[Rfam]
RNA sequence: UUGUAAAAGUCCCGGACGGCGCCCUUUCGUCUGCCGUGCUGGCACGGGCAGACGAAAAGGCAUCGGACGGGCUAAGCGUCAUGAGCAUGGAAGGCCGAUAGGCCUGGAAUGCGAAUGGCGGCGACGAUUGCGAAAGGGCGAAGCCCGAAGCAAUCGACUUUUACAA
Numbered sequence: 001u002u003g004u005a006a007a008a009g010u011c012c013c014g015g016a017c018g019g020c021g022c023c024c025u026u027u028c029g030u031c032u033g034c035c036g037u038g039c040u041g042g043c044a045c046g047g048g049c050a051g052a053c054g055a056a057a058a059g060g061c062a063u064c065g066g067a068c069g070g071g072c073u074a075a076g077c078g079u080c081a082u083g084a085g086c087a088u089g090g091a092a093g094g095c096c097g098a099u100a101g102g103c104c105u106g107g108a109a110u111g112c113g114a115a116u117g118g119c120g121g122c123g124a125c126g127a128u129u130g131c132g133a134a135a136g137g138g139c140g141a142a143g144c145c146c147g148a149a150g151c152a153a154u155c156g157a158c159u160u161u162u163a164c165a166a
Stems, first nucleotide, its partner, number of pairs: 001166007011071004018064002021061003025057009034047005077120006085112004092105005125156007136146004